The record is a 92-nucleotide RNA from Gordonia iterans, which matches "Glycine riboswitch aptamer" in Rfam. The match comes from Rfam's covariance-model search (60 bits). Gene Ontology term of the family: glycine biosynthetic process.
RNA sequence: CGCUGCGCUGCGGGAGAGCGUCCCUUCAUGGGGCCGCCGAAGGAGCAACACCUCUCCGUCAAACUCUCAGGCACCCGGACCGUGGCAGCUGC
Numbered sequence: 001c002g003c004u005g006c007g008c009u010g011c012g013g014g015a016g017a018g019c020g021u022c023c024c025u026u027c028a029u030g031g032g033g034c035c036g037c038c039g040a041a042g043g044a045g046c047a048a049c050a051c052c053u054c055u056c057c058g059u060c061a062a063a064c065u066c067u068c069a070g071g072c073a074c075c076c077g078g079a080c081c082g083u084g085g086c087a088g089c090u091g092c
Stems, first nucleotide, its partner, number of pairs: 007086007020034004036072003039068002043066003050059002